[Rfam]
RNA sequence: CUGUCCGAGGGGCGCUGCAGCAGGCCAAUCACAGCCUGUCAGGCUCGGAUGGGGCGUUACCCAAACGCAUCAACGGCGCCCAUUCGCA
Dot-bracket structure: .(((((((............(((((........)))))......))))))).....................................
A member of the RNA family "SAH (S-adenosyl-L-homocysteine) riboswitch aptamer" from Pseudomonas sp. TTU2014-080ASC, 88 nucleotides long.